[Rfam]
RNA sequence: UAGUUUUUUUAGGUUUUGAUUUUUGUAUGCUGGAUGAGAAAAUCAAGACCUAAAGAAAAUC
Numbered sequence: 001u002a003g004u005u006u007u008u009u010u011a012g013g014u015u016u017u018g019a020u021u022u023u024u025g026u027a028u029g030c031u032g033g034a035u036g037a038g039a040a041a042a043u044c045a046a047g048a049c050c051u052a053a054a055g056a057a058a059a060u061c
Base pairs, nucleotide, nucleotide: 004058005057006056007055008054009053010052011051012050013049014048015047016046017045018044019043020042021041022040023039024038
Shown here is a 61-nucleotide RNA from Merluccius polli, a member of the family "mir-737 microRNA precursor family". The base pairs follow the family's consensus structure, which was predicted with RNAalifold. Gene Ontology terms of the family: RISC complex and miRNA-mediated post-transcriptional gene silencing. A search with the family's covariance model found it, with a score of 72 bits.